The family of this 36-nucleotide RNA sequence from Prolixibacter sp. SD074 is "DUF805b RNA". A search with the family's covariance model found it, with a score of 44 bits.

RNA sequence: CAGGUGGAAUCCGAAAAGCCUGGAAUAGAGUAGGGA
Numbered sequence: 001c002a003g004g005u006g007g008a009a010u011c012c013g014a015a016a017a018g019c020c021u022g023g024a025a026u027a028g029a030g031u032a033g034g035g036a
Stems, first nucleotide, its partner, number of pairs: 002021004010035003
Lineage of the source: Bacteria > Bacteroidota > Marinilabiliales > Prolixibacteraceae > Prolixibacter. It is annotated as a cis-regulatory element.